[Rfam]
RNA sequence: CGCCAUUUAUGGCGUACAGGGUCCAGUCGCAUAAAGCCCCGAAUUUUCGGGGUUUUUUGUUAUCAGGAAACAGUAAACUGGGCUAUUAAGCCCUUUUUUU
Number, nucleotide and partner (000 for none) at each position: 001c000002g000003c000004c000005a000006u000007u000008u000009a000010u000011g000012g000013c000014g000015u000016a000017c000018a000019g000020g000021g000022u000023c000024c000025a000026g000027u000028c000029g000030c000031a000032u000033a056034a055035a054036g053037c052038c051039c050040c049041g048042a000043a000044u000045u000046u000047u000048c041049g040050g039051g038052g037053u036054u035055u034056u033057u000058u000059g000060u000061u000062a000063u000064c000065a000066g000067g000068a000069a000070a000071c000072a000073g000074u000075a000076a000077a000078c000079u000080g093081g092082g091083c090084u000085a000086u000087u000088a000089a000090g083091c082092c081093c080094u000095u000096u000097u000098u000099u000100u000
RNA: Gammaprotebacteria rimP leader